The record is a 119-nucleotide sequence from Mycobacterium avium, which matches "Actinobacteria sRNA Ms_IGR-7" in Rfam.
The family's RNA type in Rfam is small RNA.
The literature on the family includes a 2013 paper in RNA by Li et al., "Identification of small RNAs in Mycobacterium smegmatis using heterologous Hfq".
The base pairs follow the family's consensus structure.
[Rfam]
RNA sequence: CGGAAGUGCCUUUCUGACCAGGACUGAUUGUUGCGUAGAGAACAUCAAUCUUUCCAGCUCAGAGGGCACUUUCCUCGUUACGACACCCGGUCAACGAGCCCGUUCAUCGGUGGAUUCAG
Numbered sequence: 001c002g003g004a005a006g007u008g009c010c011u012u013u014c015u016g017a018c019c020a021g022g023a024c025u026g027a028u029u030g031u032u033g034c035g036u037a038g039a040g041a042a043c044a045u046c047a048a049u050c051u052u053u054c055c056a057g058c059u060c061a062g063a064g065g066g067c068a069c070u071u072u073c074c075u076c077g078u079u080a081c082g083a084c085a086c087c088c089g090g091u092c093a094a095c096g097a098g099c100c101c102g103u104u105c106a107u108c109g110g111u112g113g114a115u116u117c118a119g
Stems, first nucleotide, its partner, number of pairs: 002073012015061003019057001021055003026050003030046001032044002102115005